[Rfam]
A member of the RNA family "Small nucleolar RNA SNORD59" from Rhynochetos jubatus, 75 nucleotides long. Its Rfam clan is "SNORD59 clan".
RNA sequence: CCUCGCGGGAUGAUCUGUCGUCGUGACUUUCGUUCUCCUGAGCGUGCUGAAGCCACACAUUUCGGUCUGAGGAGG
Numbered sequence: 001c002c003u004c005g006c007g008g009g010a011u012g013a014u015c016u017g018u019c020g021u022c023g024u025g026a027c028u029u030u031c032g033u034u035c036u037c038c039u040g041a042g043c044g045u046g047c048u049g050a051a052g053c054c055a056c057a058c059a060u061u062u063c064g065g066u067c068u069g070a071g072g073a074g075g
Stems, first nucleotide, its partner, number of pairs: 001075003004071001

It is annotated as a C/D-box small nucleolar RNA.